[Rfam]
RNA: mir-1180 microRNA precursor family
Organism: Equus caballus
RNA sequence: UCUGCCUGGCCCACCCAGCCGGGAAUAGUGCACGAGUUUGUUUCCGGCUCGAGUGGGUGUGUCGGAGG
Numbered sequence: 001u002c003u004g005c006c007u008g009g010c011c012c013a014c015c016c017a018g019c020c021g022g023g024a025a026u027a028g029u030g031c032a033c034g035a036g037u038u039u040g041u042u043u044c045c046g047g048c049u050c051g052a053g054u055g056g057g058u059g060u061g062u063c064g065g066a067g068g
Stems, first nucleotide, its partner, number of pairs: 001066004006061001009058006016051001018048011031036001